[Rfam]
RNA sequence: CUCCACGGUCACCCCACUACGGAUCGUCCGGCACGUACCUGCCGGUGGGAAGGAAAACUC
Number, nucleotide and partner (000 for none) at each position: 001c000002u000003c000004c000005a000006c000007g000008g000009u000010c052011a000012c000013c049014c048015c047016a046017c000018u000019a000020c000021g000022g000023a000024u000025c000026g000027u000028c045029c044030g043031g042032c041033a040034c000035g000036u000037a000038c000039c000040u033041g032042c031043c030044g029045g028046u016047g015048g014049g013050a000051a000052g010053g000054a000055a000056a000057a000058c000059u000060c000
RNA: msiK RNA